[Rfam]
Nucleotides: 096
Stems, first nucleotide, its partner, number of pairs: 001096007
Number, partner (000 for none) and nucleotide at each position: 001096a002095g003094c004093a005092u006091c007090a008000u009000g010000u011000g012000a013000u014000g015000a016000g017000a018000u019000u020000g021000g022000a023000a024000a025000a026000u027000a028000u029000c030000u031000u032000a033000g034000g035000a036000c037000a038000c039000c040000u041000u042000c043000c044000a045000a046000c047000a048000c049000a050000g051000c052000c053000u054000a055000a056000u057000u058000u059000g060000g061000c062000u063000g064000u065000g066000a067000a068000u069000g070000a071000g072000a073000a074000a075000g076000a077000a078000a079000a080000u081000c082000c083000u084000u085000u086000c087000u088000g089000a090007u091006g092005a093004u094003g095002c096001u
This 96-nucleotide sequence from Chenopodium quinoa belongs to the Rfam family "Small nucleolar RNA snoR31/Z110/Z27". The base pairs follow the family's consensus structure, which was predicted with PFOLD. On this family, see Barneche et al., J Mol Biol 2001: "Identification of 66 box C/D snoRNAs in Arabidopsis thaliana: extensive gene duplications generated multiple isoforms predicting new ribosomal RNA 2'-O-methylation sites". Gene Ontology terms of the family: nucleolus and RNA processing. Rfam's curators write: This family contains several related snoRNAs including R31, Z27 and Z110. The source organism's lineage runs through Eukaryota, Embryophyta, Euphyllophyta, Atripliceae and Chenopodium.